[Rfam]
Description
The record is a 93-nucleotide sequence from Coregonus sp. 'balchen', which matches "Vault RNA" in Rfam. Lineage of the source: Eukaryota > Deuterostomia > Euteleostomi > Teleostei > Coregonus. This family of RNAs are found as part of the enigmatic vault ribonucleoprotein complex. The complex consists of a major vault protein (MVP), two minor vault proteins (VPARP and TEP1), and several small untranslated RNA molecules. It has been suggested that the vault complex is involved in drug resistance. Pairs were carried over by alignment from the consensus structure, which is taken from published work. It is annotated as a non-coding RNA gene.
RNA sequence: UUGCCAGCUUAGCUCAAUGGUUACUUCGUAUGCUCAAGUUUCCACUCUUCGUCGGGUUGAGGGGUCGAACCGUAGGCGCUGUCUUGGGUUUUC
Numbered sequence: 001u002u003g004c005c006a007g008c009u010u011a012g013c014u015c016a017a018u019g020g021u022u023a024c025u026u027c028g029u030a031u032g033c034u035c036a037a038g039u040u041u042c043c044a045c046u047c048u049u050c051g052u053c054g055g056g057u058u059g060a061g062g063g064g065u066c067g068a069a070c071c072g073u074a075g076g077c078g079c080u081g082u083c084u085u086g087g088g089u090u091u092u093c
Stems, first nucleotide, its partner, number of pairs: 002088001004086001006084002012077003017073004025069004